A member of the RNA family "Caenorhabditis snoRNA ceN46", 127 nucleotides long. The match comes from Rfam's covariance-model search (130 bits). Pairs were carried over by alignment from the consensus structure, which was predicted with RNAalifold.
RNA sequence: CAAGCAUGACUGCAACCUGCUUUCGGACAUGUUCCGUCUGCAGUACUUGUAGUGCGAUAUGAACCUGUGGGCCCUCCGUGUGCGUGUAACCUCAUUGAACUAGCACUCCGUUGGUCACCAGACAAUU
Numbered sequence: 001c002a003a004g005c006a007u008g009a010c011u012g013c014a015a016c017c018u019g020c021u022u023u024c025g026g027a028c029a030u031g032u033u034c035c036g037u038c039u040g041c042a043g044u045a046c047u048u049g050u051a052g053u054g055c056g057a058u059a060u061g062a063a064c065c066u067g068u069g070g071g072c073c074c075u076c077c078g079u080g081u082g083c084g085u086g087u088a089a090c091c092u093c094a095u096u097g098a099a100c101u102a103g104c105a106c107u108c109c110g111u112u113g114g115u116c117a118c119c120a121g122a123c124a125a126u127u
Base pairs, nucleotide, nucleotide: 009053010052011051012050013049014048015047017043018042019041020040024036025035026034027033066120067119070116071115072114073113076110078108080106081105082104083103086100087099